RNA sequence: GAGAUUCUUACUGCAGCUGCUGGACGCUGCACAAGAUUAGAAUUAAUAUAACUCUUGUGCGUGUGACAGCGGCUAUUGUGAAAUCUCACUUACUCCAA
Dot-bracket structure: .....(.((((...((((((((..((.((((((.((................)).))))))))...))))))))...)))).)...............
Overview: The record is a 98-nucleotide RNA from Oryctes borbonicus, which matches "mir-210 microRNA precursor family" in Rfam. NCBI's taxonomy places the organism under Eukaryota, Bilateria, Pterygota, Polyphaga, Oryctes. On this family, see Cai et al., Proc Natl Acad Sci U S A 2005: "Kaposi's sarcoma-associated herpesvirus expresses an array of viral microRNAs in latently infected cells".